[Rfam]
RNA: Small nucleolar RNA SNORD59
Organism: Ramphastos sulfuratus
RNA sequence: CCUCCCAUGAUGAUACAUCUCGAUGACUUUCGUUCUCCUGAGCUUGCUGAAGCCACAGACUUCAAUCUGAGGAGG
Numbered sequence: 001c002c003u004c005c006c007a008u009g010a011u012g013a014u015a016c017a018u019c020u021c022g023a024u025g026a027c028u029u030u031c032g033u034u035c036u037c038c039u040g041a042g043c044u045u046g047c048u049g050a051a052g053c054c055a056c057a058g059a060c061u062u063c064a065a066u067c068u069g070a071g072g073a074g075g
Base pairs, nucleotide, nucleotide: 001075002074003073005071